[Rfam]
Description
The record is an 85-nucleotide RNA from Durio zibethinus, which matches "MIR473 microRNA precursor family" in Rfam. The match comes from Rfam's covariance-model search (61 bits). Rfam links the family to the GO terms miRNA-mediated post-transcriptional gene silencing and RISC complex.
Nucleotides: 085
Stems, first nucleotide, its partner, number of pairs: 006078010017068010
Number, partner (000 for none) and nucleotide at each position: 001000g002000u003000u004000g005000c006078u007077c008076a009075c010074u011073c012072u013071c014070c015069c016000u017068c018067a019066g020065g021064g022063g023062c024061u025060u026059c027000c028000a029000g030000c031000a032000a033000u034000g035000c036000u037000g038000g039000a040000c041000a042000c043000u044000a045000c046000c047000c048000c049000a050000g051000a052000a053000a054000u055000g056000c057000u058000u059026g060025a061024a062023g063022u064021c065020u066019u067018u068017g069015g070014g071013g072012a073011g074010a075009g076008u077007g078006a079000a080000c081000a082000a083000a084000a085000c